[Rfam]
Shown here is a 92-nucleotide RNA from Intestinibacter bartlettii, a member of the family "pan motif".
RNA sequence: AAGAUAGUAUUUAACAAACUAUACUUUAUCUGAUUUAUAUAAAAAUCUUCUAAAAAUAACUUGCUUAUAUACAUAAGUAAUAAGACGAAUGU
Numbered sequence: 001a002a003g004a005u006a007g008u009a010u011u012u013a014a015c016a017a018a019c020u021a022u023a024c025u026u027u028a029u030c031u032g033a034u035u036u037a038u039a040u041a042a043a044a045a046u047c048u049u050c051u052a053a054a055a056a057u058a059a060c061u062u063g064c065u066u067a068u069a070u071a072c073a074u075a076a077g078u079a080a081u082a083a084g085a086c087g088a089a090u091g092u
Stems, first nucleotide, its partner, number of pairs: 001026003004022005010017002061088003064084005070079003